[Rfam]
Shown here is an 80-nucleotide RNA sequence from Flavobacterium cellulosilyticum, a member of the family "Flavo-1 RNA". A search with the family's covariance model found it, with a score of 54 bits.
RNA sequence: AGUGAACUUCGUUUGAAGUGAAAAUCCUUUUUUGAGAUUUUUCUUCUCAAAAAAGAUUGCAACGAAAAGCCCGACCCUUG
Dot-bracket structure: ..........(.((...((...((((..((((((((.........)))))))).))))...))...)).)..........